[Rfam]
RNA sequence: UAAUAAGAAUAUAAAAAAAGAGAGAUAUGCGCUAACAUAUCCCUCAAUUGUAGAACCGUUUAAGACGGUGGCAAGUUUAGUUUUUUGAUAAAAAA
Numbered sequence: 001u002a003a004u005a006a007g008a009a010u011a012u013a014a015a016a017a018a019a020g021a022g023a024g025a026u027a028u029g030c031g032c033u034a035a036c037a038u039a040u041c042c043c044u045c046a047a048u049u050g051u052a053g054a055a056c057c058g059u060u061u062a063a064g065a066c067g068g069u070g071g072c073a074a075g076u077u078u079a080g081u082u083u084u085u086u087g088a089u090a091a092a093a094a095a
Stems, first nucleotide, its partner, number of pairs: 026039004055069006
Rfam assigns this 95-nucleotide RNA from Melissococcus plutonius to the family "RNA anti-toxin A". Pairs were carried over by alignment from the consensus structure, which was predicted with RNAalifold. Lineage of the source: Bacteria > Bacillati > Lactobacillales > Enterococcaceae > Melissococcus plutonius.